Background:
Shown here is a 92-nucleotide sequence from Sulfurirhabdus autotrophica, a member of the family "Glycine riboswitch aptamer". Gene Ontology term of the family: glycine biosynthetic process. NCBI's taxonomy places the organism under Bacteria, Pseudomonadati, Betaproteobacteria, Nitrosomonadales, Sulfurirhabdus. A search with the family's covariance model found it, with a score of 62 bits. The pairing is the family consensus, mapped onto this sequence.

RNA sequence: AAAGGCUAAGCGGGAGAGUGUGCUGAUUGCUAGCACCGCCGAAGGCGUAAAUACCCAAUAAUCGCUCAGGUAAAAGGAACCGUUUGGUCGAG
Numbered sequence: 001a002a003a004g005g006c007u008a009a010g011c012g013g014g015a016g017a018g019u020g021u022g023c024u025g026a027u028u029g030c031u032a033g034c035a036c037c038g039c040c041g042a043a044g045g046c047g048u049a050a051a052u053a054c055c056c057a058a059u060a061a062u063c064g065c066u067c068a069g070g071u072a073a074a075a076g077g078a079a080c081c082g083u084u085u086g087g088u089c090g091a092g
Base pairs, nucleotide, nucleotide: 006087007086008085009084010083011082012081013080020036021035022034023033038071039070040069041067042066045065046064047063051059052058